[Rfam]
RNA: U12 minor spliceosomal RNA
RNA sequence: UUGCCUUAAACUAAUGAGUAAGGAAAACAAUGCAAGCGGUGGGAGCCGCUUGCGGCGCCAUCAAUAGAAUGCUAUUGUGCGCAAGAGUUUUUGGAGGGGUUAUAGGCUGGCCAAGCGUUGACGCUGCUUACUUUGCAGAACUCGCUUGUGCGGGCCUCCC
Numbered sequence: 001u002u003g004c005c006u007u008a009a010a011c012u013a014a015u016g017a018g019u020a021a022g023g024a025a026a027a028c029a030a031u032g033c034a035a036g037c038g039g040u041g042g043g044a045g046c047c048g049c050u051u052g053c054g055g056c057g058c059c060a061u062c063a064a065u066a067g068a069a070u071g072c073u074a075u076u077g078u079g080c081g082c083a084a085g086a087g088u089u090u091u092u093g094g095a096g097g098g099g100u101u102a103u104a105g106g107c108u109g110g111c112c113a114a115g116c117g118u119u120g121a122c123g124c125u126g127c128u129u130a131c132u133u134u135g136c137a138g139a140a141c142u143c144g145c146u147u148g149u150g151c152g153g154g155c156c157u158c159c160c
Base pairs, nucleotide, nucleotide: 004023005022006021007020008019032053033052034051035050036049037048038047039046055082056081057080058079099160104157105156106155107154108153110151112148113147115145116144117143124138125137126136127135